Iron response element I: a 36-nucleotide RNA from Monodelphis domestica. Gene Ontology term of the family: response to iron ion. For this family Rfam cites "Identification of the iron-responsive element for the translational regulation of human ferritin mRNA" (Hentze et al., Science, 1987). Lineage of the source: Eukaryota > Eumetazoa > Bilateria > Gnathostomata > Monodelphis.
Nucleotides: 036
Base pairs, nucleotide, nucleotide: 003034004033005032006031007030010028012027013026014025015024016023017021
Number, partner (000 for none) and nucleotide at each position: 001000c002000u003034g004033g005032u006031u007030c008000u009000u010028g011000c012027u013026u014025c015024a016023a017021c018000a019000g020000u021017g022000u023016u024015u025014g026013g027012a028010c029000c030007g031006a032005a033004c034003c035000u036000a